RNA: mir-2774 microRNA precursor family
Nucleotides: 068
Base pairs, nucleotide, nucleotide: 004065005064006063011058012057015053016052017051020049021048022047023046024045025044026043027042028041029040
Number, partner (000 for none) and nucleotide at each position: 001000a002000c003000a004065a005064u006063a007000u008000u009000c010000a011058g012057a013000g014000c015053g016052u017051c018000g019000g020049u021048c022047u023046a024045c025044c026043g027042a028041g029040c030000a031000a032000c033000a034000u035000c036000a037000c038000c039000c040029g041028c042027u043026c044025g045024g046023u047022g048021g049020a050000a051017g052016a053015u054000c055000u056000g057012u058011c059000c060000u061000u062000u063006u064005g065004u066000c067000g068000u